[Rfam]
RNA sequence: GUUCAGGUGAAUGAUGCCUGGCUCGAGACCAUUCAAUCUCAUGAUCUCAUGAUUAUAACGAUGAUGAUGAUGAUGUCGGACCAGGCUUCAUUCCCCUCAAC
Numbered sequence: 001g002u003u004c005a006g007g008u009g010a011a012u013g014a015u016g017c018c019u020g021g022c023u024c025g026a027g028a029c030c031a032u033u034c035a036a037u038c039u040c041a042u043g044a045u046c047u048c049a050u051g052a053u054u055a056u057a058a059c060g061a062u063g064a065u066g067a068u069g070a071u072g073a074u075g076u077c078g079g080a081c082c083a084g085g086c087u088u089c090a091u092u093c094c095c096c097u098c099a100a101c
Base pairs, nucleotide, nucleotide: 001101002100003099005097006096007095009093010092011091012090013089016086017085018084019083020082021081024078025077026076

The family of this 101-nucleotide RNA sequence is "mir-166 microRNA precursor family". It is one of the family's seed sequences. Rfam describes the family as follows. This family represents the plant microRNA (miRNA) precursor mir-166. Gene Ontology terms of the family: miRNA-mediated post-transcriptional gene silencing and RISC complex. For this family Rfam cites "microRNAs: tiny regulators with great potential" (Ambros, Cell, 2001). Pairs were carried over by alignment from the consensus structure, which was predicted with PFOLD.